[Rfam]
RNA sequence: GCGCGAUGAGGAUUGAUAACACAUACACACACUCUGAAGUUAUGUGAAGAGAUAAUUGAAGAACGGAUAUCUGAGCGC
Numbered sequence: 001g002c003g004c005g006a007u008g009a010g011g012a013u014u015g016a017u018a019a020c021a022c023a024u025a026c027a028c029a030c031a032c033u034c035u036g037a038a039g040u041u042a043u044g045u046g047a048a049g050a051g052a053u054a055a056u057u058g059a060a061g062a063a064c065g066g067a068u069a070u071c072u073g074a075g076c077g078c
Stems, first nucleotide, its partner, number of pairs: 001078004